[Rfam]
Record summary
Small nucleolar RNA snoR26: a 105-nucleotide RNA sequence from Digitaria exilis. Gene Ontology terms of the family: RNA processing and nucleolus. For this family Rfam cites "Multiple snoRNA gene clusters from Arabidopsis" (Brown et al., RNA, 2001). Rfam 15.1 lists 611 matches to the family in 220 species.

RNA sequence: GGAGCAUCUGUGAUGUACUACCUCUAACAUUCAUCCUUGCAUUUUGAGGGAAGGUUGCCCCUUUCUACUGAAGAAAACAUUGGGGGAAAGUAUUCUGAGAUGCUC
Numbered sequence: 001g002g003a004g005c006a007u008c009u010g011u012g013a014u015g016u017a018c019u020a021c022c023u024c025u026a027a028c029a030u031u032c033a034u035c036c037u038u039g040c041a042u043u044u045u046g047a048g049g050g051a052a053g054g055u056u057g058c059c060c061c062u063u064u065c066u067a068c069u070g071a072a073g074a075a076a077a078c079a080u081u082g083g084g085g086g087a088a089a090g091u092a093u094u095c096u097g098a099g100a101u102g103c104u105c
Stems, first nucleotide, its partner, number of pairs: 002105007